[Rfam]
RNA sequence: GAGAAUAUGAUGACCCUUUCCCCAGAUGAUCGACGCUGAACAUACUGAGCGCUACAUUUUCUCGUUCGAGAAAGCCAAGCCAGAACUCUGAUUCUC
Numbered sequence: 001g002a003g004a005a006u007a008u009g010a011u012g013a014c015c016c017u018u019u020c021c022c023c024a025g026a027u028g029a030u031c032g033a034c035g036c037u038g039a040a041c042a043u044a045c046u047g048a049g050c051g052c053u054a055c056a057u058u059u060u061c062u063c064g065u066u067c068g069a070g071a072a073a074g075c076c077a078a079g080c081c082a083g084a085a086c087u088c089u090g091a092u093u094c095u096c
Base pairs, nucleotide, nucleotide: 001096002095003094004093005092
The record is a 96-nucleotide sequence from Zea mays, which matches "Small nucleolar RNA Z103" in Rfam. The match comes from Rfam's covariance-model search (92 bits). Gene Ontology terms of the family: nucleolus and RNA processing. By type it is a C/D-box small nucleolar RNA.